Rfam assigns this 136-nucleotide sequence from Panicum virgatum to the family "Small nucleolar RNA Z247". The base pairs follow the family's consensus structure, which was predicted with PFOLD. The organism belongs to Panicum sect. Hiantes, within Eukaryota. It scores 40 bits against the family's covariance model. The family has 8 seed sequences and 7,071 matches in Rfam 15.1. Gene Ontology terms of the family: nucleolus and RNA processing. The family's RNA type in Rfam is C/D-box small nucleolar RNA.
[Rfam]
RNA sequence: CCGAUAGGAGAUCAAGAGAUGGCUUCAUUCAUCCUCAAUGGUCUCGACAUCGACUACAAUCCCGUGGUGUCCUCUGUCCUGGCGCGGACAGAACCAAUUUCCUUGAGCGAACUCUACACUCAAAUCAUCGCCUAUG
Numbered sequence: 001c002c003g004a005u006a007g008g009a010g011a012u013c014a015a016g017a018g019a020u021g022g023c024u025u026c027a028u029u030c031a032u033c034c035u036c037a038a039u040g041g042u043c044u045c046g047a048c049a050u051c052g053a054c055u056a057c058a059a060u061c062c063c064g065u066g067g068u069g070u071c072c073u074c075u076g077u078c079c080u081g082g083c084g085c086g087g088a089c090a091g092a093a094c095c096a097a098u099u100u101c102c103u104u105g106a107g108c109g110a111a112c113u114c115u116a117c118a119c120u121c122a123a124a125u126c127a128u129c130g131c132c133u134a135u136g
Base pairs, nucleotide, nucleotide: 004135005134006133007132008131089107092104093103